Small nucleolar RNA U2-19: an 80-nucleotide sequence from Pteropus vampyrus. Rfam classes the family as a C/D-box small nucleolar RNA. The source organism's lineage runs through Eukaryota, Bilateria, Boreoeutheria, Yinpterochiroptera and Pteropus. On this family, see Tycowski et al., Curr Biol 2004: "Guide RNAs with 5' Caps and Novel Box C/D snoRNA-like Domains for Modification of snRNAs in Metazoa". Rfam links the family to the GO terms nucleolus and RNA processing. It scores 55 bits against the family's covariance model.

Nucleotides: 080
Stems, first nucleotide, its partner, number of pairs: 029059005037050002
Number, partner (000 for none) and nucleotide at each position: 001000g002000a003000a004000g005000c006000a007000u008000u009000a010000g011000a012000a013000g014000u015000g016000u017000u018000g019000c020000c021000a022000a023000a024000u025000c026000u027000g028000a029059g030058c031057a032056u033055u034000a035000g036000a037050a038049g039000u040000c041000c042000u043000u044000c045000u046000a047000a048000u049038c050037u051000a052000u053000g054000u055033g056032a057031u058030g059029c060000a061000g062000g063000a064000u065000c066000u067000c068000u069000g070000u071000a072000g073000u074000u075000c076000u077000g078000a079000g080000a